[Rfam]
RNA sequence: GUGUCACUCAGAGAUCCUUCAAACACUUCAUUGGGAUGUUCUAUCUUACGGUUUUUCCUACUGAAGUGUUUGGGGGAACUCCAAGUGCCAC
Numbered sequence: 001g002u003g004u005c006a007c008u009c010a011g012a013g014a015u016c017c018u019u020c021a022a023a024c025a026c027u028u029c030a031u032u033g034g035g036a037u038g039u040u041c042u043a044u045c046u047u048a049c050g051g052u053u054u055u056u057c058c059u060a061c062u063g064a065a066g067u068g069u070u071u072g073g074g075g076g077a078a079c080u081c082c083a084a085g086u087g088c089c090a091c
Base pairs, nucleotide, nucleotide: 005087006086007085008084011081012080013079015077016076017075018074019073020072021071022070023069024068025067026066027065028064029063030062032060033059034058035057
This 91-nucleotide RNA from Mikania micrantha belongs to the Rfam family "mir-395 microRNA precursor family".